[Rfam]
RNA sequence: UCCACGCCUAGCCCGACGGGGCGAAAACGGACACCCUUAUCCGCUGGCGUAGGUUCUAUUGAGGG
Numbered sequence: 001u002c003c004a005c006g007c008c009u010a011g012c013c014c015g016a017c018g019g020g021g022c023g024a025a026a027a028c029g030g031a032c033a034c035c036c037u038u039a040u041c042c043g044c045u046g047g048c049g050u051a052g053g054u055u056c057u058a059u060u061g062a063g064g065g
Stems, first nucleotide, its partner, number of pairs: 001053002004050005011022004028043004034065005
About this RNA: A member of the RNA family "int-alpA RNA" from Sideroxydans sp. CL21, 65 nucleotides long. The organism belongs to Sideroxydans, within Bacteria. Rfam describes the family as follows. Acidobacteria (1 example), Planctomycetes (1 example), Proteobacteria.